Rfam assigns this 98-nucleotide sequence from Pseudorhizobium pelagicum to the family "Alphaproteobacterial ar15". A search with the family's covariance model found it, with a score of 62 bits. Gene Ontology term of the family: protein binding. Rfam 15.1 lists 316 matches to the family in 177 species. The family's RNA type in Rfam is small RNA.
RNA sequence: AGUUGGCAUCCGCGGCCCGGUCGCGGCUCCCAGCUGUUCCCCUCUGGAGGUUUUGAACCUUCACAUCUCAGGGCCAGGAGAAAUCCCGGCCCUAUUUU
Numbered sequence: 001a002g003u004u005g006g007c008a009u010c011c012g013c014g015g016c017c018c019g020g021u022c023g024c025g026g027c028u029c030c031c032a033g034c035u036g037u038u039c040c041c042c043u044c045u046g047g048a049g050g051u052u053u054u055g056a057a058c059c060u061u062c063a064c065a066u067c068u069c070a071g072g073g074c075c076a077g078g079a080g081a082a083a084u085c086c087c088g089g090c091c092c093u094a095u096u097u098u
Base pairs, nucleotide, nucleotide: 001035002034003033004032005031010026011025012024013023014022015021016020045063046062047061048060049059050058051057070093071092072091073090074089075088077086078085079084